[Rfam]
RNA sequence: UGUUGUGUAUGAUGAGAAAUACAAACAUCACAGUUAUCCCUGUCUGAUGCAUUUGUGCUGAACAUUUGUGAUCUGACACAAGC
Dot-bracket structure: ..(((((.....................................................................)))))..
The family of this 83-nucleotide RNA sequence from Tripterygium wilfordii is "Small nucleolar RNA R38". NCBI's taxonomy places the organism under Eukaryota, Embryophyta, Spermatophyta, rosids, Tripterygium. For this family Rfam cites "Antisense snoRNAs: a family of nucleolar RNAs with long complementarities to rRNA" (Bachellerie et al., Trends Biochem Sci, 1995). The base pairs follow the family's consensus structure, which was predicted with PFOLD. About the family: snoR38 is a C/D box small nucleolar RNA conserved across yeast, human, Arabidopsis and rice. It is encoded in the intron of elongation factor-1 gamma in both pombe and cerevisiae. snoR38 guides the methylation of 2'-O-ribose sites in 28S rRNA. It is annotated as a C/D-box small nucleolar RNA. It scores 59 bits against the family's covariance model.